[Rfam]
Nucleotides: 113
Base pairs, nucleotide, nucleotide: 007100008099009098010097011063012062013061014060016057017031018030019029020028021027039056040055041054042053068094069093070092071091075088076087077086078085
Number, partner (000 for none) and nucleotide at each position: 001000a002000g003000u004000u005000u006000a007100g008099g009098c010097u011063a012062g013061g014060g015000g016057g017031g018030c019029u020028g021027g022000a023000u024000a025000g026000g027021c028020c029019a030018g031017c032000u033000g034000a035000g036000a037000u038000a039056a040055a041054g042053a043000c044000c045000c046000u047000u048000u049000g050000a051000u052000g053042u054041c055040u056039u057016u058000g059000a060014c061013c062012c063011u064000u065000g066000a067000a068094c069093c070092u071091g072000a073000u074000u075088c076087u077086g078085g079000g080000u081000a082000a083000u084000a085078c086077c087076a088075g089000c090000g091071u092070a093069g094068g095000g096000a097010a098009g099008c100007u101000c102000a103000u104000u105000g106000a107000u108000g109000u110000c111000a112000u113000c